The family of this 81-nucleotide RNA from Aotus nancymaae is "mir-571 microRNA precursor family".
Nucleotides: 081
Stems, first nucleotide, its partner, number of pairs: 001081002004078001008074002012070006018063002021061004026056001028054001032049007
Number, partner (000 for none) and nucleotide at each position: 001081a002080g003000u004078g005000a006000u007000a008074c009073c010000a011000a012070g013069c014068u015067u016066g017065g018063u019062g020000c021061g022060c023059c024058a025000u026056u027000u028054c029000c030000u031000u032049g033048u034047c035046u036045g037044u038043a039000g040000c041000c042000a043038u044037g045036u046035g047034g048033g049032c050000u051000c052000u053000u054028g055000c056026g057000u058024u059023g060022g061021c062019c063018a064000c065017c066016u067015g068014a069013g070012u071000g072000a073009g074008g075000g076000c077000c078004u079000u080002c081001u

Its family is annotated with miRNA-mediated post-transcriptional gene silencing and RISC complex in the Gene Ontology.